[Rfam]
RNA sequence: GUUGCUUCUUUACUAGUUGAGUAGCACUAUUUUUCAUGUGAUUACUCAUAAGAGGGAGCAUAUAUCCAGGAAAAGCCAGUUUUAAACAGCAUAGUGCUCUGUUUCUUUGCAUUGUGUUACCUGUCUACUGGUAUAUUU
Numbered sequence: 001g002u003u004g005c006u007u008c009u010u011u012a013c014u015a016g017u018u019g020a021g022u023a024g025c026a027c028u029a030u031u032u033u034u035c036a037u038g039u040g041a042u043u044a045c046u047c048a049u050a051a052g053a054g055g056g057a058g059c060a061u062a063u064a065u066c067c068a069g070g071a072a073a074a075g076c077c078a079g080u081u082u083u084a085a086a087c088a089g090c091a092u093a094g095u096g097c098u099c100u101g102u103u104u105c106u107u108u109g110c111a112u113u114g115u116g117u118u119a120c121c122u123g124u125c126u127a128c129u130g131g132u133a134u135a136u137u138u
Stems, first nucleotide, its partner, number of pairs: 003060006018048005023042001025040003075132006088118003092114005
small nucleolar RNA snoR137: a 138-nucleotide RNA from Protea cynaroides. It is annotated as an H/ACA-box small nucleolar RNA. A search with the family's covariance model found it, with a score of 63 bits. Lineage of the source: Eukaryota > Streptophyta > Spermatophyta > Proteaceae > Protea.